The record is an 87-nucleotide sequence from Deinococcus gobiensis, which matches "c-di-GMP-II-GCG riboswitch aptamer" in Rfam.
Clan: c-di-GMP_II riboswitch clan.
NCBI's taxonomy places the organism under Bacteria, Deinococcota, Deinococci, Deinococcales, Deinococcus gobiensis.

RNA sequence: GAAUCACCAGGAGGCAAGGAUCCUCAACUACGUUAUUCGGGCACCUUGAGUUGAGAGGAGCUAGUGGUGCGCCCGGCCUGGAGAUCA
Numbered sequence: 001g002a003a004u005c006a007c008c009a010g011g012a013g014g015c016a017a018g019g020a021u022c023c024u025c026a027a028c029u030a031c032g033u034u035a036u037u038c039g040g041g042c043a044c045c046u047u048g049a050g051u052u053g054a055g056a057g058g059a060g061c062u063a064g065u066g067g068u069g070c071g072c073c074c075g076g077c078c079u080g081g082a083g084a085u086c087a
Stems, first nucleotide, its partner, number of pairs: 003085003007081005013062003023055007039074002041070005